[Rfam]
RNA sequence: UUGAUCCUUCGGGGCAGGGUGAGAUUCCCUACCGGCGGUGACGAUUGCAUGUGCAAUUCAGCCCGCGACUCGAUGCGUCUUUGACGAUGCAUCGACUGACUUGGUGAAAUUCCAAGGCCGACGGUAAAGUCCGGACGAGAGAAGGUUAAA
Numbered sequence: 001u002u003g004a005u006c007c008u009u010c011g012g013g014g015c016a017g018g019g020u021g022a023g024a025u026u027c028c029c030u031a032c033c034g035g036c037g038g039u040g041a042c043g044a045u046u047g048c049a050u051g052u053g054c055a056a057u058u059c060a061g062c063c064c065g066c067g068a069c070u071c072g073a074u075g076c077g078u079c080u081u082u083g084a085c086g087a088u089g090c091a092u093c094g095a096c097u098g099a100c101u102u103g104g105u106g107a108a109a110u111u112c113c114a115a116g117g118c119c120g121a122c123g124g125u126a127a128a129g130u131c132c133g134g135a136c137g138a139g140a141g142a143a144g145g146u147u148a149a150a
Stems, first nucleotide, its partner, number of pairs: 004147001006145005017029003031130002033120002035066004061118002070095005100116005122133003
This 150-nucleotide RNA sequence from Desulfosporosinus acididurans belongs to the Rfam family "FMN riboswitch aptamer (RFN element)".
It scores 112 bits against the family's covariance model.
Gene Ontology term of the family: FMN binding.
The organism belongs to Desulfosporosinus, within Bacteria.